Acido-Lenti-1 RNA: a 46-nucleotide RNA sequence from Aeoliella straminimaris.
The match comes from Rfam's covariance-model search (47 bits).

[Rfam]
RNA sequence: CCUGGGGCUCGCGCCCCAGGCUAUGCGCUUUCGCCGCUCCGCGGCU
Numbered sequence: 001c002c003u004g005g006g007g008c009u010c011g012c013g014c015c016c017c018a019g020g021c022u023a024u025g026c027g028c029u030u031u032c033g034c035c036g037c038u039c040c041g042c043g044g045c046u
Stems, first nucleotide, its partner, number of pairs: 001020008033045005